[Rfam]
Rfam assigns this 61-nucleotide sequence from Papio anubis to the family "U7 small nuclear RNA". Animal histone pre-mRNAs are spliced by a different mechanism than nuclear pre-mRNAs and self-splicing introns. This processing involves the U7 snRNP, which contains only one RNA species: U7. The 5' end of U7 RNA is thought to base-pair to a conserved spacer element downstream of the cleavage site in histone pre-mRNA. This family contains a number of annotated U7 pseudogenes. For this family Rfam cites "U7 snRNAs: a computational survey" (Marz et al., Genomics Proteomics Bioinformatics, 2007).
RNA sequence: CAGUAUUACAGCUCUUUCAGAAUUUGUCUAGCAGGUUUUCCAGUAUUCGUCGGAAACUCUA
Numbered sequence: 001c002a003g004u005a006u007u008a009c010a011g012c013u014c015u016u017u018c019a020g021a022a023u024u025u026g027u028c029u030a031g032c033a034g035g036u037u038u039u040c041c042a043g044u045a046u047u048c049g050u051c052g053g054a055a056a057c058u059c060u061a
Stems, first nucleotide, its partner, number of pairs: 034058007043050002
The organism belongs to Papio, within Eukaryota. Pairs were carried over by alignment from the consensus structure, which was predicted with PFOLD.